[Rfam]
RNA: Alphaproteobacteria transfer-messenger RNA
Organism: Rhodobacteraceae bacterium CCMM004
RNA sequence: UGGCUUGAACUGGGCGGCCGGGUCGCCUAGGUUCAAAGAUGUCCUUCGGGACUAUGGUGAUAAACGCGCAGGUAAUAAGCGGAUCGGACCCGGGGGCGGUACCCGGCGGCUCCACCAAAUCUCCUUCGUUGGGGGACCAUGGGGCCGAAACAGGAUCGACGGACGUCUAAAGCUGUAGCUUUCACUCGGUGAGGUACCACCGUUAUCGGUCCGACAAAGCAUAAUUGCCAACGACAAUCGUGCUCCGGUUGCUCUGGCCGCUUAAGCGGUUCGAGUAAUCGAAAUCUGAAGCCCUUGCGCCUAGCCGCGUAAGGCGGGGUUCGCAGGCACCUGGCAACAGAAGCCUGCACU
Numbered sequence: 001u002g003g004c005u006u007g008a009a010c011u012g013g014g015c016g017g018c019c020g021g022g023u024c025g026c027c028u029a030g031g032u033u034c035a036a037a038g039a040u041g042u043c044c045u046u047c048g049g050g051a052c053u054a055u056g057g058u059g060a061u062a063a064a065c066g067c068g069c070a071g072g073u074a075a076u077a078a079g080c081g082g083a084u085c086g087g088a089c090c091c092g093g094g095g096g097c098g099g100u101a102c103c104c105g106g107c108g109g110c111u112c113c114a115c116c117a118a119a120u121c122u123c124c125u126u127c128g129u130u131g132g133g134g135g136a137c138c139a140u141g142g143g144g145c146c147g148a149a150a151c152a153g154g155a156u157c158g159a160c161g162g163a164c165g166u167c168u169a170a171a172g173c174u175g176u177a178g179c180u181u182u183c184a185c186u187c188g189g190u191g192a193g194g195u196a197c198c199a200c201c202g203u204u205a206u207c208g209g210u211c212c213g214a215c216a217a218a219g220c221a222u223a224a225u226u227g228c229c230a231a232c233g234a235c236a237a238u239c240g241u242g243c244u245c246c247g248g249u250u251g252c253u254c255u256g257g258c259c260g261c262u263u264a265a266g267c268g269g270u271u272c273g274a275g276u277a278a279u280c281g282a283a284a285u286c287u288g289a290a291g292c293c294c295u296u297g298c299g300c301c302u303a304g305c306c307g308c309g310u311a312a313g314g315c316g317g318g319g320u321u322c323g324c325a326g327g328c329a330c331c332u333g334g335c336a337a338c339a340g341a342a343g344c345c346u347g348c349a350c351u
Stems, first nucleotide, its partner, number of pairs: 041052004056186005066179002068176004080165002084162003090106005107147007187202004193212002196210003317332004323348006